TPP riboswitch aptamer (THI element): a 104-nucleotide RNA from Lacticaseibacillus nasuensis. The family's consensus secondary structure is taken from published work. A search with the family's covariance model found it, with a score of 57 bits.
RNA sequence: CGCAUGUUUCCGGGGAUGCCGUGUGCGGCAUGAGAGUCGGUAAAAGCCGAGACCCGUCGAACCUGUCAGUUAACACUGUCGAAGGGAGAAACAUAGUGUAACCC
Numbered sequence: 001c002g003c004a005u006g007u008u009u010c011c012g013g014g015g016a017u018g019c020c021g022u023g024u025g026c027g028g029c030a031u032g033a034g035a036g037u038c039g040g041u042a043a044a045a046g047c048c049g050a051g052a053c054c055c056g057u058c059g060a061a062c063c064u065g066u067c068a069g070u071u072a073a074c075a076c077u078g079u080c081g082a083a084g085g086g087a088g089a090a091a092c093a094u095a096g097u098g099u100a101a102c103c104c
Stems, first nucleotide, its partner, number of pairs: 006092005011056004017030005037050005062085003067078003